[Rfam]
RNA sequence: GUCGAGCUUGGUAACGCGAGCUUGUGACCCAAGUGGGGACAACAAGGUGGUGGAACAAGAAUCCAGAUAGUUGGGUCGGGUCUUGGGUUGGCUUUAUGCUGGCCUGCCCUGUCCAAGUUGGGAGUUGAUCCAUGGGUCUUAGGCGAAGGCUUGAGUCUCUUGGGUCCUAGAGCAGAGGGUACUGCGUGAGGCUGGUUUCACAGAGCAACGAGAACUUCUCGCUCCUGUCAGUGGACGGAUAACGGGCUGGUGCCACCCGGAUCCAUUAGUACCCAUCUAGCUUAGAUCUCAUCUGGACCACCACUUUU
Numbered sequence: 001g002u003c004g005a006g007c008u009u010g011g012u013a014a015c016g017c018g019a020g021c022u023u024g025u026g027a028c029c030c031a032a033g034u035g036g037g038g039a040c041a042a043c044a045a046g047g048u049g050g051u052g053g054a055a056c057a058a059g060a061a062u063c064c065a066g067a068u069a070g071u072u073g074g075g076u077c078g079g080g081u082c083u084u085g086g087g088u089u090g091g092c093u094u095u096a097u098g099c100u101g102g103c104c105u106g107c108c109c110u111g112u113c114c115a116a117g118u119u120g121g122g123a124g125u126u127g128a129u130c131c132a133u134g135g136g137u138c139u140u141a142g143g144c145g146a147a148g149g150c151u152u153g154a155g156u157c158u159c160u161u162g163g164g165u166c167c168u169a170g171a172g173c174a175g176a177g178g179g180u181a182c183u184g185c186g187u188g189a190g191g192c193u194g195g196u197u198u199c200a201c202a203g204a205g206c207a208a209c210g211a212g213a214a215c216u217u218c219u220c221g222c223u224c225c226u227g228u229c230a231g232u233g234g235a236c237g238g239a240u241a242a243c244g245g246g247c248u249g250g251u252g253c254c255a256c257c258c259g260g261a262u263c264c265a266u267u268a269g270u271a272c273c274c275a276u277c278u279a280g281c282u283u284a285g286a287u288c289u290c291a292u293c294u295g296g297a298c299c300a301c302c303a304c305u306u307u308u
Base pairs, nucleotide, nucleotide: 001040002039003038004023005022006021007020008019009018010017028037029036030035044307045306046305047304048303049302050301051300052299053298056295057294059290060289061287062286063285065283066282068279069278070277072275073274074273075272076271078264079263080262081261082260083259085257087256089255090254091253093252099250100249101248102247103246104245105244106243108238109237111236112235113234114233115232117229119227120226121225122224123223124222125221127166128165129164130163131162132161134159135158136157138155139154140153141152142151143150144149167172174219175218176217177216178215183212185210186209187208192203193202194201
A member of the RNA family "Plant signal recognition particle RNA" from Beta vulgaris, 308 nucleotides long. Its family is annotated with SRP-dependent cotranslational protein targeting to membrane, signal sequence recognition and signal recognition particle, endoplasmic reticulum targeting in the Gene Ontology.